This 102-nucleotide sequence from Heyndrickxia ginsengihumi belongs to the Rfam family "Purine riboswitch aptamer". NCBI's taxonomy places the organism under Bacteria, Bacillati, Bacillota, Caryophanales, Heyndrickxia. Rfam links the family to the GO term purine nucleobase biosynthetic process. It scores 88 bits against the family's covariance model.
[Rfam]
RNA sequence: AAUCCCAAUAAACUCUUACUUCAUAUAAUUUCGAUAAUAAGGUUCGAAAGUCUCUACCUAAUCACCGUAAAUGAUUGGACUAUGAAGGCAGUUAGUAUUAUA
Numbered sequence: 001a002a003u004c005c006c007a008a009u010a011a012a013c014u015c016u017u018a019c020u021u022c023a024u025a026u027a028a029u030u031u032c033g034a035u036a037a038u039a040a041g042g043u044u045c046g047a048a049a050g051u052c053u054c055u056a057c058c059u060a061a062u063c064a065c066c067g068u069a070a071a072u073g074a075u076u077g078g079a080c081u082a083u084g085a086a087g088g089c090a091g092u093u094a095g096u097a098u099u100a101u102a
Stems, first nucleotide, its partner, number of pairs: 019087007029049006058078007
Dot-bracket structure: ..................(((((((...((((((.........))))))........(((((((.......)))))))..)))))))...............